Background:
This 216-nucleotide RNA from Apium graveolens belongs to the Rfam family "Plant small nucleolar RNA U3". The family's consensus secondary structure is taken from published work. The literature on the family includes a 1997 paper in Nucleic Acids Res by Zwieb, "The uRNA database". Rfam 15.1 lists 3,759 matches to the family in 258 species. The match comes from Rfam's covariance-model search (144 bits). Rfam classes the family as a C/D-box small nucleolar RNA. Clan: U3 clan. The organism belongs to Apium, within Eukaryota.

[Rfam]
RNA sequence: AAGACCUUACUUGAACAGGAUCUGUUCUAUAGUAAUCAUACCUCUGUAUCCUUGAUUUCAAAGGAGACAGGUGACCAAGUCUCAUGGAUGAAUCGUGACUGCAGGACCAGAUGCUGAUUAACAGCACUGCAUGGCAGUGCACCAUUCAGAGCCGUAGAGGAUCAUUCUCAGCUGGGUUCUCCUGGCUGGGGUGGUCUUGCAGUUGUCUGACAGACC
Numbered sequence: 001a002a003g004a005c006c007u008u009a010c011u012u013g014a015a016c017a018g019g020a021u022c023u024g025u026u027c028u029a030u031a032g033u034a035a036u037c038a039u040a041c042c043u044c045u046g047u048a049u050c051c052u053u054g055a056u057u058u059c060a061a062a063g064g065a066g067a068c069a070g071g072u073g074a075c076c077a078a079g080u081c082u083c084a085u086g087g088a089u090g091a092a093u094c095g096u097g098a099c100u101g102c103a104g105g106a107c108c109a110g111a112u113g114c115u116g117a118u119u120a121a122c123a124g125c126a127c128u129g130c131a132u133g134g135c136a137g138u139g140c141a142c143c144a145u146u147c148a149g150a151g152c153c154g155u156a157g158a159g160g161a162u163c164a165u166u167c168u169c170a171g172c173u174g175g176g177u178u179c180u181c182c183u184g185g186c187u188g189g190g191g192u193g194g195u196c197u198u199g200c201a202g203u204u205g206u207c208u209g210a211c212a213g214a215c216c
Stems, first nucleotide, its partner, number of pairs: 001039001003036001006032002013027006044070004049065005079215004098203012111165003121155002124152002127149003131145004167190010